[Rfam]
RNA sequence: AUGCAGCCCUAAGCGCCGGGCCCCCGCCCGCACAAGAGCGUGGGGUGACGAGGUGCGAAGUUUGCGGGACCGCUUCCCGGCAGGAUGUUUUUCCGGCCAAAGACAGCGGCCUCCAUCGAAAGAUUCGGCGGAUGCUUCGCCGGCCCGAUUCCCGGAUGGGUCGUAAGAAGACGCACAAAAAACGGCAGCAAUGCCGCAACAGAGACGUCUUUACGGGAUAAA
Numbered sequence: 001a002u003g004c005a006g007c008c009c010u011a012a013g014c015g016c017c018g019g020g021c022c023c024c025c026g027c028c029c030g031c032a033c034a035a036g037a038g039c040g041u042g043g044g045g046u047g048a049c050g051a052g053g054u055g056c057g058a059a060g061u062u063u064g065c066g067g068g069a070c071c072g073c074u075u076c077c078c079g080g081c082a083g084g085a086u087g088u089u090u091u092u093c094c095g096g097c098c099a100a101a102g103a104c105a106g107c108g109g110c111c112u113c114c115a116u117c118g119a120a121a122g123a124u125u126c127g128g129c130g131g132a133u134g135c136u137u138c139g140c141c142g143g144c145c146c147g148a149u150u151c152c153c154g155g156a157u158g159g160g161u162c163g164u165a166a167g168a169a170g171a172c173g174c175a176c177a178a179a180a181a182a183c184g185g186c187a188g189c190a191a192u193g194c195c196g197c198a199a200c201a202g203a204g205a206c207g208u209c210u211u212u213a214c215g216g217g218a219u220a221a222a
Stems, first nucleotide, its partner, number of pairs: 020046005026041002029038001055140005065127003141163006167212007183196005
RNA: glmS glucosamine-6-phosphate activated ribozyme aptamer